[Rfam]
RNA sequence: UCUUCAUUUCCCACACUCUCUCGCCCGGUCGAGUGACGAGAGAGUAUGUGAAAUGAAGAAA
Numbered sequence: 001u002c003u004u005c006a007u008u009u010c011c012c013a014c015a016c017u018c019u020c021u022c023g024c025c026c027g028g029u030c031g032a033g034u035g036a037c038g039a040g041a042g043a044g045u046a047u048g049u050g051a052a053a054u055g056a057a058g059a060a061a
Base pairs, nucleotide, nucleotide: 001059002058003057004056005055006054007053010050012048013047015045016044017043019041020040021039022038

Overview
A member of the RNA family "mir-8364 microRNA precursor family" from Pristionchus pacificus, 61 nucleotides long. NCBI's taxonomy places the organism under Eukaryota, Opisthokonta, Eumetazoa, Nematoda, Pristionchus. Its family is annotated with RISC complex and miRNA-mediated post-transcriptional gene silencing in the Gene Ontology.